[Rfam]
Rfam assigns this 35-nucleotide RNA from Pedobacter agri to the family "DUF805b RNA". It is one of the family's seed sequences. By type it is a cis-regulatory element. The organism belongs to Pedobacter agri, within Bacteria.
RNA sequence: ACAGAAGAAGCUGAAAAUCUAUAACAGAGUAGGCA
Number, nucleotide and partner (000 for none) at each position: 001a000002c000003a020004g019005a018006a000007g000008a000009a000010g034011c033012u032013g000014a000015a000016a000017a000018u005019c004020u003021a000022u000023a000024a000025c000026a000027g000028a000029g000030u000031a000032g012033g011034c010035a000